[Rfam]
RNA sequence: GAGUUAGCGAUAAUUAUAAAAAUAAUUCUUAGUUCUGACUUAUUUAAUUUAGGUAUGACAAAUCUCUUAUUAUAACCAUAGAAUCUAAGCUAC
Numbered sequence: 001g002a003g004u005u006a007g008c009g010a011u012a013a014u015u016a017u018a019a020a021a022a023u024a025a026u027u028c029u030u031a032g033u034u035c036u037g038a039c040u041u042a043u044u045u046a047a048u049u050u051a052g053g054u055a056u057g058a059c060a061a062a063u064c065u066c067u068u069a070u071u072a073u074a075a076c077c078a079u080a081g082a083a084u085c086u087a088a089g090c091u092a093c
Stems, first nucleotide, its partner, number of pairs: 003093002006091002
RNA: Small nucleolar RNA snoR8a